[Rfam]
Nucleotides: 173
Stems, first nucleotide, its partner, number of pairs: 020054008063095005072084004096111005118162002122158002131148007
Number, partner (000 for none) and nucleotide at each position: 001000a002000a003000a004000a005000c006000a007000g008000u009000u010000a011000u012000a013000g014000c015000g016000c017000c018000a019000g020054a021053g022052c023051u024050a025049a026048g027047g028000a029000a030000a031000u032000c033000g034000g035000a036000c037000g038000a039000c040000a041000c042000a043000u044000a045000a046000a047027c048026c049025u050024u051023a052022g053021c054020u055000g056000a057000c058000g059000a060000g061000g062000u063095g064094g065093a066092g067091g068000a069000g070000u071000a072084u073083c074082g075081a076000a077000a078000u079000a080000u081075u082074c083073g084072g085000c086000g087000g088000a089000u090000g091067c092066c093065u094064c095063c096111c097110g098109a099108c100107u101000a102000a103000g104000c105000c106000a107100a108099g109098u110097c111096g112000c113000a114000a115000a116000a117000a118162g119161u120000c121000u122158c123157a124000u125000g126000c127000a128000a129000a130000u131148c132147g133146u134145g135144c136143a137142a138000g139000c140000a141000a142137u143136u144135g145134u146133g147132c148131g149000g150000a151000c152000a153000a154000a155000c156000a157123u158122g159000u160000u161119a162118c163000g164000a165000c166000g167000g168000c169000a170000c171000a172000a173000a